Rfam assigns this 86-nucleotide RNA from Streptomyces sp. DSM 40868 to the family "nrdJ RNA". A search with the family's covariance model found it, with a score of 68 bits. By type it is a small RNA. Lineage of the source: Bacteria > Bacillati > Actinomycetes > Streptomycetaceae > Streptomyces.
RNA sequence: ACCUGUCACGGGCGGCGGCUGAGGACGCCCGCGACGCAAGACAGAACCAUGUGCCCACGGGAACAACGGGGGCAUUUCAGGGCGUU
Numbered sequence: 001a002c003c004u005g006u007c008a009c010g011g012g013c014g015g016c017g018g019c020u021g022a023g024g025a026c027g028c029c030c031g032c033g034a035c036g037c038a039a040g041a042c043a044g045a046a047c048c049a050u051g052u053g054c055c056c057a058c059g060g061g062a063a064c065a066a067c068g069g070g071g072g073c074a075u076u077u078c079a080g081g082g083c084g085u086u
Stems, first nucleotide, its partner, number of pairs: 004036004009031006016024001051075006058068002